[Rfam]
RNA sequence: ACUAUCCUUGUCUUGGGGUAGUGCUACUGUCCAAUGAACAAAUAGUGAGGGCAGUACUGCUAAUGCCUACACAACACGCCCGCAUCAACUAGAGGUUUUUUGGGGUUUUUUUUGUUUUU
Number, nucleotide and partner (000 for none) at each position: 001a000002c000003u000004a000005u000006c018007c017008u016009u015010g000011u000012c000013u000014u000015g009016g008017g007018g006019u000020a000021g060022u059023g058024c000025u000026a055027c054028u053029g052030u051031c050032c049033a000034a000035u000036g000037a000038a046039c045040a000041a000042a000043u000044a000045g039046u038047g000048a000049g032050g031051g030052c029053a028054g027055u026056a000057c000058u023059g022060c021061u000062a000063a000064u000065g000066c000067c000068u000069a000070c000071a000072c000073a000074a000075c000076a000077c000078g000079c000080c000081c000082g000083c000084a000085u000086c000087a000088a000089c114090u000091a112092g000093a108094g107095g106096u105097u104098u103099u000100u000101u000102g000103g098104g097105g096106u095107u094108u093109u000110u000111u000112u091113u000114g089115u000116u000117u000118u000119u000
RNA: U4atac minor spliceosomal RNA
Organism: Microcebus murinus